Rfam assigns this 356-nucleotide part of an RNA from Peptidiphaga gingivicola to the family "Bacterial small subunit ribosomal RNA". It scores 1498 bits against the family's covariance model. The base pairs follow the family's consensus structure, which is taken from published work.
[Rfam]
RNA sequence: GGCGUAAAGGGCUCGUAGGCGGCUUGUCGCGUCUGCUGUGAAAACGCGGGGCUCAACUCCGCGCGUGCAGUGGGUACGGGCAGGCUGGAGUGCGGCAGGGGUGGCUGGAAUUCCUGGUGUAGCGGUGGAAUGCGCAGAUAUCAGGAAGAACACCGAUGGCGAAGGCAGGCCACUGGGCCGUCACUGACGCUGAGGAGCGAAAGCGUGGGGAGCGAACAGGAUUAGAUACCCUGGUAGUCCACGCUGUAAACGUUGGGAACUAGGUGUGGGGUCUGUUCCACGGAUUCUGCGCCGGAGCUAACGCGUUAAGUUCCCCGCCUGGGGAGUACGGCCGCAAGGCUAAAACUCAAAGGAAU
Numbered sequence: 001g002g003c004g005u006a007a008a009g010g011g012c013u014c015g016u017a018g019g020c021g022g023c024u025u026g027u028c029g030c031g032u033c034u035g036c037u038g039u040g041a042a043a044a045c046g047c048g049g050g051g052c053u054c055a056a057c058u059c060c061g062c063g064c065g066u067g068c069a070g071u072g073g074g075u076a077c078g079g080g081c082a083g084g085c086u087g088g089a090g091u092g093c094g095g096c097a098g099g100g101g102u103g104g105c106u107g108g109a110a111u112u113c114c115u116g117g118u119g120u121a122g123c124g125g126u127g128g129a130a131u132g133c134g135c136a137g138a139u140a141u142c143a144g145g146a147a148g149a150a151c152a153c154c155g156a157u158g159g160c161g162a163a164g165g166c167a168g169g170c171c172a173c174u175g176g177g178c179c180g181u182c183a184c185u186g187a188c189g190c191u192g193a194g195g196a197g198c199g200a201a202a203g204c205g206u207g208g209g210g211a212g213c214g215a216a217c218a219g220g221a222u223u224a225g226a227u228a229c230c231c232u233g234g235u236a237g238u239c240c241a242c243g244c245u246g247u248a249a250a251c252g253u254u255g256g257g258a259a260c261u262a263g264g265u266g267u268g269g270g271g272u273c274u275g276u277u278c279c280a281c282g283g284a285u286u287c288u289g290c291g292c293c294g295g296a297g298c299u300a301a302c303g304c305g306u307u308a309a310g311u312u313c314c315c316c317g318c319c320u321g322g323g324g325a326g327u328a329c330g331g332c333c334g335c336a337a338g339g340c341u342a343a344a345a346c347u348c349a350a351a352g353g354a355a356u
Stems, first nucleotide, its partner, number of pairs: 001319003009316001011198004016192001018191003022085007030078002032074009045063007089185003092181005100174007107151001111147008122133003159166002203244006212238002217233004255315006263293012297304002321348003330341004